[Rfam]
RNA: Plastid-ccsA-ndhD-2 3UTR RNA
Organism: Asteropyrum cavaleriei
RNA sequence: UUUUGAGAAUCAUUUGAAUCAAGUAGCGAUUCAAAUGAUUCUC
Numbered sequence: 001u002u003u004u005g006a007g008a009a010u011c012a013u014u015u016g017a018a019u020c021a022a023g024u025a026g027c028g029a030u031u032c033a034a035a036u037g038a039u040u041c042u043c
Base pairs, nucleotide, nucleotide: 005043006042007041008040009039010038011037012036013035014034015033016032017031018030019029020028
Dot-bracket structure: ....((((((((((((((((.......))))))))))))))))